This 108-nucleotide RNA sequence from Plutella xylostella belongs to the Rfam family "mir-8517 microRNA precursor family". Pairs were carried over by alignment from the consensus structure, which was predicted with RNAalifold. Rfam links the family to the GO terms miRNA-mediated post-transcriptional gene silencing and RISC complex.
RNA sequence: UAACAGAAAGUUUUAACUAUUACACUGUUUUGUCCCUCUCUGACAAGGAACAAUUUGUUCAUUGACAGAGAGGGACUAAACAGUUCAUUAGCUAAAACGCCCUCCAAC
Numbered sequence: 001u002a003a004c005a006g007a008a009a010g011u012u013u014u015a016a017c018u019a020u021u022a023c024a025c026u027g028u029u030u031u032g033u034c035c036c037u038c039u040c041u042g043a044c045a046a047g048g049a050a051c052a053a054u055u056u057g058u059u060c061a062u063u064g065a066c067a068g069a070g071a072g073g074g075a076c077u078a079a080a081c082a083g084u085u086c087a088u089u090a091g092c093u094a095a096a097a098c099g100c101c102c103u104c105c106a107a108c
Stems, first nucleotide, its partner, number of pairs: 001107001005103002011097005017091003021087001024084005029069006049059004
Dot-bracket structure: (...((....(((((.(((.(..(((((((((((..............((((...))))....))))))..........)))))..).))).)))))....))...).